The record is a 67-nucleotide RNA sequence from Arthrobacter sp. CAU 1506, which matches "Actino-pnp RNA" in Rfam.

RNA sequence: CGCGGUCCUCGGUAGUGGCUUCCGGGACGUCCCUUGGACAGCCCGUAGGUCUCGAUCGAAGACCGGG
Dot-bracket structure: (.(((((.(((((...(((((.((((.(............))))).)))))...))))).))))).)
Rfam classes the family as a cis-regulatory element.